Rfam assigns this 128-nucleotide RNA sequence from Aotus nancymaae to the family "Small nucleolar RNA SNORA11". It is annotated as an H/ACA-box small nucleolar RNA. U107 (SNORA11) is a member of the H/ACA class of snoRNAs that guide the sites of modification of uridines to pseudouridines. This snoRNA was identified by RT-PCR from blood cells and its expression confirmed by Northern blot analysis. There is no predicted target for this guide snRNA. The family's consensus secondary structure was predicted with RNAalifold. On this family, see Gu et al., Nucleic Acids Res 2005: "A novel experimental approach for systematic identification of box H/ACA snoRNAs from eukaryotes". Lineage of the source: Eukaryota > Bilateria > Teleostomi > Sarcopterygii > Aotus.
RNA sequence: AGGAUUUGCUUAGAGCAGGGGGUUGAAAAGUGGCUCCUCUGUUUACAAUAUGCCCAAAAGGAAUCUGGGAUCAUUGUGACAAGGGACACAAAACUUGUGGCCUCCCUACAUGUGAAAAGAAAAAACAA
Numbered sequence: 001a002g003g004a005u006u007u008g009c010u011u012a013g014a015g016c017a018g019g020g021g022g023u024u025g026a027a028a029a030g031u032g033g034c035u036c037c038u039c040u041g042u043u044u045a046c047a048a049u050a051u052g053c054c055c056a057a058a059a060g061g062a063a064u065c066u067g068g069g070a071u072c073a074u075u076g077u078g079a080c081a082a083g084g085g086a087c088a089c090a091a092a093a094c095u096u097g098u099g100g101c102c103u104c105c106c107u108a109c110a111u112g113u114g115a116a117a118a119g120a121a122a123a124a125a126c127a128a
Stems, first nucleotide, its partner, number of pairs: 002055002005052001007050002013044009022034003071118001075114003083103003087099005
Dot-bracket structure: .((.(.((....((((((((((((.......))).)))))))))....)).).))...............(...(((.....(((.(((((...))))).)))........)))...)..........